[Rfam]
RNA sequence: GCAUGGAUGAAUUCUGCACUAGCUUUCCUCAGUAGCUAAUGCAGUCAGACACUAUGCCAGAGUAAAUUCCCUUUUUGCACUGAAAUGGGUGUGCUUUUUGUAUGAGAAAAAAUACACGGGUGUGCCCGUGGAAGUGGGAUACAU
Numbered sequence: 001g002c003a004u005g006g007a008u009g010a011a012u013u014c015u016g017c018a019c020u021a022g023c024u025u026u027c028c029u030c031a032g033u034a035g036c037u038a039a040u041g042c043a044g045u046c047a048g049a050c051a052c053u054a055u056g057c058c059a060g061a062g063u064a065a066a067u068u069c070c071c072u073u074u075u076u077g078c079a080c081u082g083a084a085a086u087g088g089g090u091g092u093g094c095u096u097u098u099u100g101u102a103u104g105a106g107a108a109a110a111a112a113u114a115c116a117c118g119g120g121u122g123u124g125c126c127c128g129u130g131g132a133a134g135u136g137g138g139a140u141a142c143a144u
Stems, first nucleotide, its partner, number of pairs: 001057006014044005070137002072134007087127010
Rfam assigns this 144-nucleotide sequence from Cuculus canorus to the family "Small nucleolar RNA SNORA15". Rfam describes the family as follows. ACA15 is a member of the H/ACA class of snoRNA that guide the sites of modification of uridines to pseudouridines.